Rfam assigns this 85-nucleotide sequence from Odocoileus virginianus to the family "Small nucleolar RNA R38". On this family, see Chen et al., Nucleic Acids Res 2003: "The high diversity of snoRNAs in plants: identification and comparative study of 120 snoRNA genes from Oryza sativa". Taxonomically the source falls in Odocoileus virginianus (Eukaryota, Opisthokonta, Chordata, Odocoileus). It scores 50 bits against the family's covariance model.
RNA sequence: CUGAGUCUAUGAUGAUGUGAAGUUAUCCCUGUCUGAAGGCCAAAAAAAGGCCUUUGAGUGUGGACUCUGGAUAUCUGAGACUCAG
Numbered sequence: 001c002u003g004a005g006u007c008u009a010u011g012a013u014g015a016u017g018u019g020a021a022g023u024u025a026u027c028c029c030u031g032u033c034u035g036a037a038g039g040c041c042a043a044a045a046a047a048a049g050g051c052c053u054u055u056g057a058g059u060g061u062g063g064a065c066u067c068u069g070g071a072u073a074u075c076u077g078a079g080a081c082u083c084a085g
Stems, first nucleotide, its partner, number of pairs: 001085007